[Rfam]
RNA sequence: UAUUAAAUUUUGAUGUGAAUUAGUAAAUUAAAUUUUUUUUCAGAGACUAAAUGGUUGGUGUGAAUUUAGAUAAUAUUUAAUCGAACUCGUCACUGAAUGUCUAAUUGAAAUAUUGAGUAGGUUAGACCGUUUUUCCUCGUUAUGGAAUUUCAAGAGUCUCAUUUUGAGAAAAAUAGGUGGCACCGCGGAAUAAUAUUCGUCCUAAGG
Numbered sequence: 001u002a003u004u005a006a007a008u009u010u011u012g013a014u015g016u017g018a019a020u021u022a023g024u025a026a027a028u029u030a031a032a033u034u035u036u037u038u039u040u041c042a043g044a045g046a047c048u049a050a051a052u053g054g055u056u057g058g059u060g061u062g063a064a065u066u067u068a069g070a071u072a073a074u075a076u077u078u079a080a081u082c083g084a085a086c087u088c089g090u091c092a093c094u095g096a097a098u099g100u101c102u103a104a105u106u107g108a109a110a111u112a113u114u115g116a117g118u119a120g121g122u123u124a125g126a127c128c129g130u131u132u133u134u135c136c137u138c139g140u141u142a143u144g145g146a147a148u149u150u151c152a153a154g155a156g157u158c159u160c161a162u163u164u165u166g167a168g169a170a171a172a173a174u175a176g177g178u179g180g181c182a183c184c185g186c187g188g189a190a191u192a193a194u195a196u197u198c199g200u201c202c203u204a205a206g207g
Stems, first nucleotide, its partner, number of pairs: 007098002015093004027081005036072001038070001047069006100126007128139002157169005174204004185200005
RNA: T-box leader